[Rfam]
RNA sequence: AAUAAAGGAGCAAUAACCAAAUUCUUGUUGUAUCAAGAGUGUUGAUUAUUGCUCCUUUACU
Numbered sequence: 001a002a003u004a005a006a007g008g009a010g011c012a013a014u015a016a017c018c019a020a021a022u023u024c025u026u027g028u029u030g031u032a033u034c035a036a037g038a039g040u041g042u043u044g045a046u047u048a049u050u051g052c053u054c055c056u057u058u059a060c061u
Stems, first nucleotide, its partner, number of pairs: 004058012019042001022039006

Rfam assigns this 61-nucleotide RNA from Heimia apetala to the family "Plastid-psbA-4 3UTR RNA". The organism belongs to Heimia, within Eukaryota. A reference for the family is Richter et al. (2023), "Retrograde signaling in plants: A critical review focusing on the GUN pathway and beyond", Plant Commun. Plastid psbA-4 is a non-coding RNA (ncRNA) present in plastids. It was identified in inverted repeat sequences in the 3 prime untranslate region (3UTR) of photosystem II quinone-binding protein (psbA). The family's consensus secondary structure was predicted with LocARNA.